[Rfam]
RNA sequence: AAUAGAUUUAUGCCACAUCAGCAUUUUUAUCCUGAAUUUCAGGAUUUUAAUUUGGAUUUGAUUUUUUUUCAGGAUAAAAAUGCUGAAAUUCAGGAUAAAAAUGCUGAUGUGGCAUAAAUCUAUU
Number, nucleotide and partner (000 for none) at each position: 001a124002a123003u122004a121005g120006a119007u118008u117009u116010a115011u114012g113013c112014c111015a110016c109017a108018u107019c106020a105021g104022c103023a102024u101025u100026u099027u098028u000029a096030u095031c094032c093033u092034g091035a090036a089037u088038u087039u086040c000041a084042g083043g000044a000045u080046u079047u078048u077049a000050a000051u000052u000053u000054g000055g000056a000057u000058u000059u000060g000061a000062u000063u000064u000065u000066u000067u000068u000069u000070c000071a000072g000073g000074a000075u000076a000077a048078a047079a046080a045081u000082g000083c042084u041085g000086a039087a038088a037089u036090u035091c034092a033093g032094g031095a030096u029097a000098a027099a026100a025101a024102u023103g022104c021105u020106g019107a018108u017109g016110u015111g014112g013113c012114a011115u010116a009117a008118a007119u006120c005121u004122a003123u002124u001
Shown here is a 124-nucleotide RNA from Gossypium australe, a member of the family "MIR7504 microRNA precursor family". The family's consensus secondary structure was predicted with RNAalifold. NCBI's taxonomy places the organism under Eukaryota, Streptophytina, Mesangiospermae, rosids, Gossypium.